[Rfam]
RNA sequence: CAGUUUCGGCGCCGCAUACUCCUCCUCCCAAUGCGCGCCGAACGGGCUGACAACCCUCCUCCUCCCAGUUGUCGCCCAUUUCAAAUGACGCCCGCCGGAUCUCCUCCCCCGGUGGGCGUUAUUG
Numbered sequence: 001c002a003g004u005u006u007c008g009g010c011g012c013c014g015c016a017u018a019c020u021c022c023u024c025c026u027c028c029c030a031a032u033g034c035g036c037g038c039c040g041a042a043c044g045g046g047c048u049g050a051c052a053a054c055c056c057u058c059c060u061c062c063u064c065c066c067a068g069u070u071g072u073c074g075c076c077c078a079u080u081u082c083a084a085a086u087g088a089c090g091c092c093c094g095c096c097g098g099a100u101c102u103c104c105u106c107c108c109c110c111g112g113u114g115g116g117c118g119u120u121a122u123u124g
Base pairs, nucleotide, nucleotide: 007040008039009038011036012035014034015033016032017031045077046076048074049073050072051071052070053069054068088119089118090117091116092115093114094113095112096111097110098109